Rfam assigns this 109-nucleotide RNA from Miscanthus lutarioriparius to the family "MIR5565 microRNA precursor family".
The match comes from Rfam's covariance-model search (102 bits).
Taxonomically the source falls in Miscanthus (Eukaryota, Spermatophyta, Poales, Saccharinae).
RNA sequence: UUAGUCAGAUUUGCCUCAACCCAUAUGUGUUGGGGUGGAUUGGAGUGGAACUUGAACUAAAUUCCACCCCAAUACACCCUAACACAUGUGGAUUGAGGUGAAUCUAACA
Numbered sequence: 001u002u003a004g005u006c007a008g009a010u011u012u013g014c015c016u017c018a019a020c021c022c023a024u025a026u027g028u029g030u031u032g033g034g035g036u037g038g039a040u041u042g043g044a045g046u047g048g049a050a051c052u053u054g055a056a057c058u059a060a061a062u063u064c065c066a067c068c069c070c071a072a073u074a075c076a077c078c079c080u081a082a083c084a085c086a087u088g089u090g091g092a093u094u095g096a097g098g099u100g101a102a103u104c105u106a107a108c109a
Stems, first nucleotide, its partner, number of pairs: 004108002007105008016096004021091012035077003039073005045067003
Dot-bracket structure: ...((.((((((((.((((.((((((((((((..(((.(((((.(((.................))).))))).)))..)))))))))))).)))).)))))))).)).